[Rfam]
RNA sequence: AGCAGAGUAGGUGUAUGCGCGUUAAGUGCCGGACGUACAGGGAGUUGACGGUCGGACGAAAAGGUUUUCUUGCGGUGCGUACGCCGCAUCCCGCUGCA
Numbered sequence: 001a002g003c004a005g006a007g008u009a010g011g012u013g014u015a016u017g018c019g020c021g022u023u024a025a026g027u028g029c030c031g032g033a034c035g036u037a038c039a040g041g042g043a044g045u046u047g048a049c050g051g052u053c054g055g056a057c058g059a060a061a062a063g064g065u066u067u068u069c070u071u072g073c074g075g076u077g078c079g080u081a082c083g084c085c086g087c088a089u090c091c092c093g094c095u096g097c098a
Stems, first nucleotide, its partner, number of pairs: 002097004010085010020074003026057002029055004034050003040091003044087001061071004